[Rfam]
Rfam assigns this 444-nucleotide RNA sequence from Rhodococcus sp. ABRD24 to the family "Bacterial RNase P class A".
Ribonuclease P (RNase P) is a ubiquitous endoribonuclease, found in archaea, bacteria and eukarya as well as chloroplasts and mitochondria.
The family's RNA type in Rfam is ribozyme.

RNA sequence: CGAGUUGGCCGGGCGGCCGCGGCUACGGGAACCGACAUCCUCGAGGUGUCAGGCCCGGCGCCGAGGAAAGUCCGGACUCCACAGAGCAGGGCGGUUGCUAACGGCAACCCGAGGUGACUCGCGGGACAGUGCCACAGAGAACAAACCGCCGAUGGCUGUGUCCUUGUGACACGGACGUCGGUAAGGGUGAAAAGGUGCGGUAAGAGCGCACCAGCGCCUCAGGUGACUGGGGUGGCUCGGUAAACCCCGCCCGGAGCAAGGUUGAAGGCCGCACCGGUGCCCUUCGGGGUGCGGUGUGCGGCUGCGCAGGUGUUCGAGGGCUGCUCGCCCGAGCCUGCGGGUGAACCGCUCGAGGUACCCGGCGACGGUGUGCCCAGAUGGAUGGUCGCCACCCGGCGCGCAAGUGCCGGGGGACAGGAUCCGGCUUACACGCCAACUCGUCCG
Numbered sequence: 001c002g003a004g005u006u007g008g009c010c011g012g013g014c015g016g017c018c019g020c021g022g023c024u025a026c027g028g029g030a031a032c033c034g035a036c037a038u039c040c041u042c043g044a045g046g047u048g049u050c051a052g053g054c055c056c057g058g059c060g061c062c063g064a065g066g067a068a069a070g071u072c073c074g075g076a077c078u079c080c081a082c083a084g085a086g087c088a089g090g091g092c093g094g095u096u097g098c099u100a101a102c103g104g105c106a107a108c109c110c111g112a113g114g115u116g117a118c119u120c121g122c123g124g125g126a127c128a129g130u131g132c133c134a135c136a137g138a139g140a141a142c143a144a145a146c147c148g149c150c151g152a153u154g155g156c157u158g159u160g161u162c163c164u165u166g167u168g169a170c171a172c173g174g175a176c177g178u179c180g181g182u183a184a185g186g187g188u189g190a191a192a193a194g195g196u197g198c199g200g201u202a203a204g205a206g207c208g209c210a211c212c213a214g215c216g217c218c219u220c221a222g223g224u225g226a227c228u229g230g231g232g233u234g235g236c237u238c239g240g241u242a243a244a245c246c247c248c249g250c251c252c253g254g255a256g257c258a259a260g261g262u263u264g265a266a267g268g269c270c271g272c273a274c275c276g277g278u279g280c281c282c283u284u285c286g287g288g289g290u291g292c293g294g295u296g297u298g299c300g301g302c303u304g305c306g307c308a309g310g311u312g313u314u315c316g317a318g319g320g321c322u323g324c325u326c327g328c329c330c331g332a333g334c335c336u337g338c339g340g341g342u343g344a345a346c347c348g349c350u351c352g353a354g355g356u357a358c359c360c361g362g363c364g365a366c367g368g369u370g371u372g373c374c375c376a377g378a379u380g381g382a383u384g385g386u387c388g389c390c391a392c393c394c395g396g397c398g399c400g401c402a403a404g405u406g407c408c409g410g411g412g413g414a415c416a417g418g419a420u421c422c423g424g425c426u427u428a429c430a431c432g433c434c435a436a437c438u439c440g441u442c443c444g
Base pairs, nucleotide, nucleotide: 001440002439003438004437005436006435007434008433009432011429012390013389014388015387016386017385018384020063021062022061023060026057027056028055068427069426070425072424073423074422075421076420077256078255079254080253084326085325086324087323089252090251091250092249093248094108095107096106097105098104109123110121111120112119113118124247125246129245130244131241132240133239146186147185148182149181150180151179152178153177154176156174157173158172159171160170161169162168194212195211196210197209198208199207214236215234216233217232218231219230220229221228222227260347261346262345263344306338307337308336309335310334311333318330319329320328321327354373359368360367361366